[Rfam]
RNA: Small nucleolar RNA R64/Z200 family
Organism: Triticum aestivum
RNA sequence: GCAUUGCUAUGAUUAAUUAUGAAUUUUCGCAUGUCAGACUUCAGAGAUGCCUCUGGCUUCAAUGAGAAGUCAUAUCAUAUGACUCAGCAAUUA
Numbered sequence: 001g002c003a004u005u006g007c008u009a010u011g012a013u014u015a016a017u018u019a020u021g022a023a024u025u026u027u028c029g030c031a032u033g034u035c036a037g038a039c040u041u042c043a044g045a046g047a048u049g050c051c052u053c054u055g056g057c058u059u060c061a062a063u064g065a066g067a068a069g070u071c072a073u074a075u076c077a078u079a080u081g082a083c084u085c086a087g088c089a090a091u092u093a
Stems, first nucleotide, its partner, number of pairs: 003091005046060002049057001